[Rfam]
RNA sequence: CUGAAGGGCGCGUCCGGGUCAAUUGCGGAAUGCAACACCCGAUCUCCCUCAACACCCCUCCUGACAUGGAGGUCGAAGAGGGGGAGCGCGUGACCGUCAG
Numbered sequence: 001c002u003g004a005a006g007g008g009c010g011c012g013u014c015c016g017g018g019u020c021a022a023u024u025g026c027g028g029a030a031u032g033c034a035a036c037a038c039c040c041g042a043u044c045u046c047c048c049u050c051a052a053c054a055c056c057c058c059u060c061c062u063g064a065c066a067u068g069g070a071g072g073u074c075g076a077a078g079a080g081g082g083g084g085a086g087c088g089c090g091u092g093a094c095c096g097u098c099a100g
Stems, first nucleotide, its partner, number of pairs: 001100004008091006015041004023035005043085005050080001055075001
The family of this 100-nucleotide RNA from Natronobacterium lacisalsi is "L4-Archaeoglobi ribosomal protein leades". By type it is a cis-regulatory leader. The family's consensus secondary structure is taken from published work. Rfam's curators put it in the seed alignment.